[Rfam]
RNA: Purine riboswitch aptamer
Organism: Oceanobacillus halophilus
RNA sequence: UAUUGUAAUUUAAUAGAAAUGCGUAUAAUUAUGGGGAUAUGGCCCAAGAGUUUCUACCAGACUGCCGUAAAUAGUCUGACUACGCAGAUAUAGUAAUAGAUU
Numbered sequence: 001u002a003u004u005g006u007a008a009u010u011u012a013a014u015a016g017a018a019a020u021g022c023g024u025a026u027a028a029u030u031a032u033g034g035g036g037a038u039a040u041g042g043c044c045c046a047a048g049a050g051u052u053u054c055u056a057c058c059a060g061a062c063u064g065c066c067g068u069a070a071a072u073a074g075u076c077u078g079a080c081u082a083c084g085c086a087g088a089u090a091u092a093g094u095a096a097u098a099g100a101u102u
Base pairs, nucleotide, nucleotide: 020086021085022084023083024082025081029049030048032046033045034044035043058078059077060076061075062074063073064072